[Rfam]
RNA sequence: CUGUCACCGCCUUCGCUGAUGUGCGACGGAGUCCGAGGUGGUGGCGGCAACAAAGAUUUUCAGACGUCCAUCGCACCGUAUGUGAAGUGACACUCCACCUACGGCCCGAACACGGGAGAGAACGCUGAGCGUUACAAC
Numbered sequence: 001c002u003g004u005c006a007c008c009g010c011c012u013u014c015g016c017u018g019a020u021g022u023g024c025g026a027c028g029g030a031g032u033c034c035g036a037g038g039u040g041g042u043g044g045c046g047g048c049a050a051c052a053a054a055g056a057u058u059u060u061c062a063g064a065c066g067u068c069c070a071u072c073g074c075a076c077c078g079u080a081u082g083u084g085a086a087g088u089g090a091c092a093c094u095c096c097a098c099c100u101a102c103g104g105c106c107c108g109a110a111c112a113c114g115g116g117a118g119a120g121a122a123c124g125c126u127g128a129g130c131g132u133u134a135c136a137a138c
Stems, first nucleotide, its partner, number of pairs: 001047012076104005082098003

This 138-nucleotide sequence from Corynebacterium marinum belongs to the Rfam family "atpB RNA". NCBI's taxonomy places the organism under Bacteria, Bacillati, Actinomycetes, Corynebacterium, Corynebacterium marinum. By type it is a cis-regulatory element. The match comes from Rfam's covariance-model search (115 bits).